[Rfam]
RNA sequence: UAUUCAUACAUGCCAAAACUUUUUGAUUACAAAAAAGUGUGGGGGACUUAUUGAUGGAGCAUAGGACGAUGAUACAUCGUUACCUGUAUCCUUGGGGUGAAUCGCGCAUAGUGCGUGUAGGGUAAACUUCCUUACCCAAACCCGACAACUAACUCCGCAGGCAUAUAAGGAGGAAAUA
Numbered sequence: 001u002a003u004u005c006a007u008a009c010a011u012g013c014c015a016a017a018a019c020u021u022u023u024u025g026a027u028u029a030c031a032a033a034a035a036a037g038u039g040u041g042g043g044g045g046a047c048u049u050a051u052u053g054a055u056g057g058a059g060c061a062u063a064g065g066a067c068g069a070u071g072a073u074a075c076a077u078c079g080u081u082a083c084c085u086g087u088a089u090c091c092u093u094g095g096g097g098u099g100a101a102u103c104g105c106g107c108a109u110a111g112u113g114c115g116u117g118u119a120g121g122g123u124a125a126a127c128u129u130c131c132u133u134a135c136c137c138a139a140a141c142c143c144g145a146c147a148a149c150u151a152a153c154u155c156c157g158c159a160g161g162c163a164u165a166u167a168a169g170g171a172g173g174a175a176a177u178a
Base pairs, nucleotide, nucleotide: 011163012162013161014160018038019037020036021035022034023033024032039158040157041156042155043154044153049094050093095143096142097141103117104116105115106114120137121136122135123134
Rfam assigns this 178-nucleotide sequence from Paenibacillus sp. IHBB 10380 to the family "c-di-AMP riboswitch aptamer (ydaO/yuaA leader)". This family represents a conserved RNA structure found upstream of the ydaO and yuaA genes in Bacillus subtilis and related genes in other bacteria. The source organism's lineage runs through Bacteria, Bacillati, Bacilli, Caryophanales and Paenibacillus.